The record is a 79-nucleotide RNA from Phyllotreta striolata, which matches "mir-184 microRNA precursor family" in Rfam. The family has 66 seed sequences and 948 matches in Rfam 15.1. Pairs were carried over by alignment from the consensus structure, which was predicted with PFOLD. Taxonomically the source falls in Phyllotreta (Eukaryota, Panarthropoda, Dicondylia, Galerucinae). A search with the family's covariance model found it, with a score of 65 bits. On this family, see Chen et al., Genes Dev 2005: "The developmental miRNA profiles of zebrafish as determined by small RNA cloning".
RNA sequence: UUUCUUCCAGACCCUUGUCAUUCUCACGCCCGGUGUAUUUCGACAACUGGACGGAGAACUGAUAAGGGCUUGUGGGAAA
Number, nucleotide and partner (000 for none) at each position: 001u000002u000003u000004c000005u000006u000007c000008c000009a000010g000011a000012c068013c067014c066015u065016u064017g063018u062019c061020a060021u058022u057023c056024u055025c054026a000027c000028g000029c050030c049031c000032g000033g000034u000035g000036u000037a000038u000039u000040u000041c000042g000043a000044c000045a000046a000047c000048u000049g030050g029051a000052c000053g000054g025055a024056g023057a022058a021059c000060u020061g019062a018063u017064a016065a015066g014067g013068g012069c000070u000071u000072g000073u000074g000075g000076g000077a000078a000079a000